About this RNA:
The record is a 77-nucleotide RNA from Monodelphis domestica, which matches "mir-208 microRNA precursor family" in Rfam. The family's consensus secondary structure was predicted with RNAalifold. On this family, see Lagos-Quintana et al., RNA 2003: "New microRNAs from mouse and human". The family has 29 seed sequences and 563 matches in Rfam 15.1.
[Rfam]
RNA sequence: CCUCUCAGGGAAGCUUUUUGCUCGGGUUAUGUUUUGGAUCUGAAUAUAAGACGAACAAAAGGUUUGUCUGUGUGCAG
Numbered sequence: 001c002c003u004c005u006c007a008g009g010g011a012a013g014c015u016u017u018u019u020g021c022u023c024g025g026g027u028u029a030u031g032u033u034u035u036g037g038a039u040c041u042g043a044a045u046a047u048a049a050g051a052c053g054a055a056c057a058a059a060a061g062g063u064u065u066g067u068c069u070g071u072g073u074g075c076a077g
Stems, first nucleotide, its partner, number of pairs: 004072001006070001008068002011065008020056001023053002027049006